[Rfam]
RNA sequence: GCCCAACUUUAGGGGUGCCCGCGUCGGGCUGAGAUUAUACCCUUCGUACCUGAUCCGGCAAUACCGGCGUAGGAAAAAGUGUCGUUCUCUGC
Numbered sequence: 001g002c003c004c005a006a007c008u009u010u011a012g013g014g015g016u017g018c019c020c021g022c023g024u025c026g027g028g029c030u031g032a033g034a035u036u037a038u039a040c041c042c043u044u045c046g047u048a049c050c051u052g053a054u055c056c057g058g059c060a061a062u063a064c065c066g067g068c069g070u071a072g073g074a075a076a077a078a079g080u081g082u083c084g085u086u087c088u089c090u091g092c
Base pairs, nucleotide, nucleotide: 006080007079008078009077010076011043012042013041014040016037017029018028019027020026021025049073050072051071052070055067056066057065058064